[Rfam]
RNA sequence: UGACCGGGAGACUUUCCUUGGGAAGAAAGUCACGAAUUGGUCUCACUAUCGUCUCAAAUUUGCCCGCCACUGGGUCCCCGACAGUGUGUGUG
Dot-bracket structure: .((((....(((((((........))))))).......))))....................(.((((((((.........))))).))).)
The family of this 92-nucleotide RNA sequence is "Rhodo-rpoB RNA". Pairs were carried over by alignment from the consensus structure, which is taken from published work. The family's RNA type in Rfam is cis-regulatory element.